SAM riboswitch aptamer (S box leader): a 107-nucleotide RNA from Terribacillus sp. AE2B 122. Gene Ontology term of the family: regulation of gene expression. NCBI's taxonomy places the organism under Bacteria, Bacillota, Bacilli, Bacillaceae, Terribacillus.

RNA sequence: UUCUUAUCAAGAGAAGCCGAGGGACUGGCCCGAUGAAGCUUCAGCAACCUCUGAUUAUGUCAGAAAGGUGCUAAAUCCAGCAAGAUUAAUUUCUUGGAAGAUAAGAG
Numbered sequence: 001u002u003c004u005u006a007u008c009a010a011g012a013g014a015a016g017c018c019g020a021g022g023g024a025c026u027g028g029c030c031c032g033a034u035g036a037a038g039c040u041u042c043a044g045c046a047a048c049c050u051c052u053g054a055u056u057a058u059g060u061c062a063g064a065a066a067g068g069u070g071c072u073a074a075a076u077c078c079a080g081c082a083a084g085a086u087u088a089a090u091u092u093c094u095u096g097g098a099a100g101a102u103a104a105g106a107g
Stems, first nucleotide, its partner, number of pairs: 001107008013042005021031003025080004043072004048068002050064004076099001081096005